[Rfam]
RNA sequence: GUCUGCCUGCAUGUGGAUAGUGUUCAGCACCAAGGACAGGUGUGUUUACCAGUGUGUGGAUGGUGUUCAGCACCAAGGACAGGUAUGUCUGUCU
Numbered sequence: 001g002u003c004u005g006c007c008u009g010c011a012u013g014u015g016g017a018u019a020g021u022g023u024u025c026a027g028c029a030c031c032a033a034g035g036a037c038a039g040g041u042g043u044g045u046u047u048a049c050c051a052g053u054g055u056g057u058g059g060a061u062g063g064u065g066u067u068c069a070g071c072a073c074c075a076a077g078g079a080c081a082g083g084u085a086u087g088u089c090u091g092u093c094u
Stems, first nucleotide, its partner, number of pairs: 004085006018075001020073005026067007034055001036053002039050004
The family of this 94-nucleotide RNA sequence from Branchiostoma lanceolatum is "mir-2060 microRNA precursor family". The organism belongs to Branchiostoma, within Eukaryota. Pairs were carried over by alignment from the consensus structure, which was predicted with RNAalifold. It scores 96 bits against the family's covariance model.